Shown here is a 66-nucleotide RNA sequence, a member of the family "RAGATH-18 RNA". The base pairs follow the family's consensus structure, which is taken from published work. Actinobacteria, Firmicutes, Fusobacteria, Thermotogae (1 example).
RNA sequence: CCUUUGGACUGUUAUAUCAAACCAUAGUAGUUAGCAAUAACGAGGUGGGACAGGUUGAAGAAGGAA
Numbered sequence: 001c002c003u004u005u006g007g008a009c010u011g012u013u014a015u016a017u018c019a020a021a022c023c024a025u026a027g028u029a030g031u032u033a034g035c036a037a038u039a040a041c042g043a044g045g046u047g048g049g050a051c052a053g054g055u056u057g058a059a060g061a062a063g064g065a066a
Stems, first nucleotide, its partner, number of pairs: 001064005009053005022048003030041003